[Rfam]
RNA sequence: CAAGAGUGGGAAUGAUGACCUGGUUGGACUAGAGGCUCUGAGUGUCUCUGAGGAUCUUUGAAACCACCUGAUCCACUCUUA
Number, nucleotide and partner (000 for none) at each position: 001c000002a000003a080004g079005a000006g077007u075008g074009g073010g000011a000012a000013u000014g000015a000016u000017g000018a072019c000020c070021u000022g068023g067024u066025u000026g064027g000028a000029c000030u000031a057032g056033a055034g000035g000036c052037u051038c050039u000040g048041a047042g046043u000044g000045u000046c042047u041048c040049u000050g038051a037052g036053g000054a000055u033056c032057u031058u000059u000060g000061a000062a000063a000064c026065c000066a024067c023068c022069u000070g020071a000072u018073c009074c008075a007076c000077u006078c000079u004080u003081a000